[Rfam]
RNA sequence: AAAUACCUUCGGUAGGUGAGGUUACCACAGGGAUUAGGAUAUUUCCUGAGAUUGCUGCCGCGAGUUUGUGGAGACACAGGCGAGAUGGUUAGCAGGCUAUGUCGAAGACUAAGGCAUAACCUAACGCAAUUUUAUGCCCUGUGAUACUAAAGCUUGAACGAUAUUUUUA
Numbered sequence: 001a002a003a004u005a006c007c008u009u010c011g012g013u014a015g016g017u018g019a020g021g022u023u024a025c026c027a028c029a030g031g032g033a034u035u036a037g038g039a040u041a042u043u044u045c046c047u048g049a050g051a052u053u054g055c056u057g058c059c060g061c062g063a064g065u066u067u068g069u070g071g072a073g074a075c076a077c078a079g080g081c082g083a084g085a086u087g088g089u090u091a092g093c094a095g096g097c098u099a100u101g102u103c104g105a106a107g108a109c110u111a112a113g114g115c116a117u118a119a120c121c122u123a124a125c126g127c128a129a130u131u132u133u134a135u136g137c138c139c140u141g142u143g144a145u146a147c148u149a150a151a152g153c154u155u156g157a158a159c160g161a162u163a164u165u166u167u168u169a
Stems, first nucleotide, its partner, number of pairs: 005165001009161003013112001015154003020148003026143007051130005057089004067078004095121002098118001101115003
Record summary
The record is a 169-nucleotide sequence from Mediterraneibacter butyricigenes, which matches "M-box riboswitch aptamer (ykoK leader)" in Rfam. Rfam's curators write: M-box riboswitch, also know as ykoK leader is described as a metaloregulatory RNA that sense divalent metals and function as a genetic control element of genes related to divalent metal transport in bacteria. The literature on the family includes a 2004 paper in Proc Natl Acad Sci U S A by Barrick et al., "New RNA motifs suggest an expanded scope for riboswitches in bacterial genetic control". The source organism's lineage runs through Bacteria, Bacillota, Lachnospirales, Lachnospiraceae and Mediterraneibacter.